[Rfam]
RNA sequence: CGGCCGGGACGACCCGAACACGCCUUCGAUGCGAGCGGGGACGACCCUG
Numbered sequence: 001c002g003g004c005c006g007g008g009a010c011g012a013c014c015c016g017a018a019c020a021c022g023c024c025u026u027c028g029a030u031g032c033g034a035g036c037g038g039g040g041a042c043g044a045c046c047c048u049g
Stems, first nucleotide, its partner, number of pairs: 002019001005016004036049005

Overview: The family of this 49-nucleotide RNA from Lignipirellula cremea is "Guanidine-II riboswitch aptamer (mini-ykkC)". About the family: Simpler in structure and has fewer highly conserved nucleotide positions than the ykkC-yxkD leader. Despite this each of its two stem-loop structures directly bind free guanidine. Therefore, mini-ykkC RNA motif represents a distinct class of guanidine-sensing RNAs. The family's consensus secondary structure is taken from published work. It scores 36 bits against the family's covariance model.